[Rfam]
RNA: mir-3473 microRNA precursor family
Nucleotides: 076
Stems, first nucleotide, its partner, number of pairs: 002075023
Number, partner (000 for none) and nucleotide at each position: 001000a002075c003074c004073a005072c006071u007070g008069a009068g010067c011066c012065a013064u014063c015062u016061c017060u018059c019058c020057a021056g022055c023054c024053c025000c026000u027000c028000c029000a030000u031000u032000g033000u034000u035000u036000u037000u038000u039000a040000a041000c042000c043000a044000u045000g046000a047000a048000g049000c050000u051000c052000a053024g054023g055022g056021c057020u058019g059018g060017a061016g062015a063014g064013a065012u066011g067010g068009c069008u070007c071006a072005g073004u074003g075002g076000u